Description
This 154-nucleotide RNA from Streptomyces coryli belongs to the Rfam family "c-di-AMP riboswitch aptamer (ydaO/yuaA leader)". Lineage of the source: Bacteria > Actinomycetota > Kitasatosporales > Streptomycetaceae > Streptomyces. The base pairs follow the family's consensus structure. Rfam describes the family as follows. This family represents a conserved RNA structure found upstream of the ydaO and yuaA genes in Bacillus subtilis and related genes in other bacteria.

Nucleotides: 154
Base pairs, nucleotide, nucleotide: 002027003026029134030133031132032131033130034129039070071119072118073117079096080095081094082093099113100112101111102110
Number, partner (000 for none) and nucleotide at each position: 001000a002027c003026c004000g005000u006000c007000g008000u009000c010000u011000u012000g013000c014000c015000a016000c017000c018000g019000c020000a021000g022000g023000g024000c025000a026003g027002g028000a029134g030133c031132g032131g033130g034129g035000g036000a037000a038000c039070c040000a041000a042000c043000g044000u045000u046000c047000u048000c049000c050000g051000u052000c053000g054000g055000g056000g057000a058000c059000u060000u061000u062000c063000c064000c065000g066000a067000c068000u069000a070039g071119g072118g073117g074000u075000g076000c077000a078000g079096c080095c081094g082093c083000a084000c085000c086000g087000a088000u089000u090000g091000g092000c093082g094081c095080g096079g097000c098000c099113g100112g101111g102110c103000a104000g105000c106000u107000c108000c109000a110102g111101c112100c113099c114000g115000a116000a117073c118072c119071c120000g121000a122000c123000a124000g125000c126000u127000c128000a129034c130033c131032u132031c133030g134029c135000a136000g137000g138000c139000g140000c141000c142000g143000g144000a145000g146000a147000a148000a149000g150000u151000c152000c153000c154000a